[Rfam]
Rfam assigns this 48-nucleotide sequence to the family "L31-Actinobacteria ribosomal protein leader". By type it is a cis-regulatory leader.

RNA sequence: GCGGUUCCGGUUCACGUCGAGGCUCCCCGGCCCGACGACCCGGCGGCC
Number, nucleotide and partner (000 for none) at each position: 001g000002c000003g048004g047005u046006u000007c043008c042009g041010g040011u000012u000013c000014a000015c037016g036017u035018c034019g033020a000021g032022g031023c030024u000025c000026c000027c000028c000029g000030g023031c022032c021033c019034g018035a017036c016037g015038a000039c000040c010041c009042g008043g007044c000045g000046g005047c004048c003